[Rfam]
RNA: U1 spliceosomal RNA
Organism: Abrus precatorius
RNA sequence: GUACAUACUUGGACGGGGUCAACGAGUGAUCAAGUAGGCUCAUGACCUAGGUCAACGACUUUCAUUGCACAUUCGAAGGUGCGUUUGCCUAACAUCUCCUGAGCGGAGCAUGUACGUCAAAAUUUGUGGUAGAGGGCACUGUGCUCGCGCAGUCCCUGU
Numbered sequence: 001g002u003a004c005a006u007a008c009u010u011g012g013a014c015g016g017g018g019u020c021a022a023c024g025a026g027u028g029a030u031c032a033a034g035u036a037g038g039c040u041c042a043u044g045a046c047c048u049a050g051g052u053c054a055a056c057g058a059c060u061u062u063c064a065u066u067g068c069a070c071a072u073u074c075g076a077a078g079g080u081g082c083g084u085u086u087g088c089c090u091a092a093c094a095u096c097u098c099c100u101g102a103g104c105g106g107a108g109c110a111u112g113u114a115c116g117u118c119a120a121a122a123u124u125u126g127u128g129g130u131a132g133a134g135g136g137c138a139c140u141g142u143g144c145u146c147g148c149g150c151a152g153u154c155c156c157u158g159u
Base pairs, nucleotide, nucleotide: 012118013117014116015115016048017047018046019045020044021043024041025040026039027038049090050089051088053087055084056083057082060079061078062076063075092113093112094111095110096108097107098106099105133157134156135155136154138153140151141150142149143148